A member of the RNA family "mir-9198 microRNA precursor family" from Cnephaeus nilssonii, 79 nucleotides long. Lineage of the source: Eukaryota > Opisthokonta > Chordata > Vespertilionidae > Cnephaeus. The base pairs follow the family's consensus structure, which was predicted with RNAalifold.

[Rfam]
RNA sequence: GCCACCGCUCGCACCCGCUGCUGGCGCCUGGCACCAGUCCCGAUCACUUGGUGCCAUCAGCGGGUGCGAGCGGUGGCUG
Numbered sequence: 001g002c003c004a005c006c007g008c009u010c011g012c013a014c015c016c017g018c019u020g021c022u023g024g025c026g027c028c029u030g031g032c033a034c035c036a037g038u039c040c041c042g043a044u045c046a047c048u049u050g051g052u053g054c055c056a057u058c059a060g061c062g063g064g065u066g067c068g069a070g071c072g073g074u075g076g077c078u079g
Stems, first nucleotide, its partner, number of pairs: 004074017022056007